[Rfam]
RNA sequence: AUGCCUUAAACUUAUGAGUAAGGAUAACAAUGAUUUGGGGUGACGCCCGAAUCCUCACUGCUAAUGUGAGAUGAAUUUUUGAGCGGGUAAAGGUUGCCCCUAAGGUGACCCAUCUACUUUGUGGGAUGCCUGGGACCCCCCA
Numbered sequence: 001a002u003g004c005c006u007u008a009a010a011c012u013u014a015u016g017a018g019u020a021a022g023g024a025u026a027a028c029a030a031u032g033a034u035u036u037g038g039g040g041u042g043a044c045g046c047c048c049g050a051a052u053c054c055u056c057a058c059u060g061c062u063a064a065u066g067u068g069a070g071a072u073g074a075a076u077u078u079u080u081g082a083g084c085g086g087g088u089a090a091a092g093g094u095u096g097c098c099c100c101u102a103a104g105g106u107g108a109c110c111c112a113u114c115u116a117c118u119u120u121g122u123g124g125g126a127u128g129c130c131u132g133g134g135a136c137c138c139c140c141c142a
Base pairs, nucleotide, nucleotide: 004023005022006021007020008019032053033052034051035050036049037048038047039046054070055069056068057067058066094142096140100134101133103131104130105129106128107127109125110124111123112122113121
Dot-bracket structure: ...(((((..........)))))........((((((((......))))))))(((((.......))))).......................(.(...((.(((((.(((((.......))))).))))).)).....).)
This 142-nucleotide RNA from Erinaceus europaeus belongs to the Rfam family "U12 minor spliceosomal RNA". The match comes from Rfam's covariance-model search (112 bits). The base pairs follow the family's consensus structure.